The record is an 85-nucleotide sequence from Homo sapiens, which matches "mir-3119 microRNA precursor family" in Rfam. Lineage of the source: Eukaryota > Craniata > Boreoeutheria > Catarrhini > Homo. Pairs were carried over by alignment from the consensus structure, which was predicted with RNAalifold.
RNA sequence: AUUAACUAUGGCUUUUAACUUUGAUGGCAAAGACAUAGAUUGUUUAGCUACCCCUUUGCCAUCAAAGUUAAAAGCCAGAGUUAAU
Dot-bracket structure: (((((((.((((((((((((((((((((((((...(((.........)))...)))))))))))))))))))))))).)))))))
Numbered sequence: 001a002u003u004a005a006c007u008a009u010g011g012c013u014u015u016u017a018a019c020u021u022u023g024a025u026g027g028c029a030a031a032g033a034c035a036u037a038g039a040u041u042g043u044u045u046a047g048c049u050a051c052c053c054c055u056u057u058g059c060c061a062u063c064a065a066a067g068u069u070a071a072a073a074g075c076c077a078g079a080g081u082u083a084a085u
Stems, first nucleotide, its partner, number of pairs: 001085007009077024036050003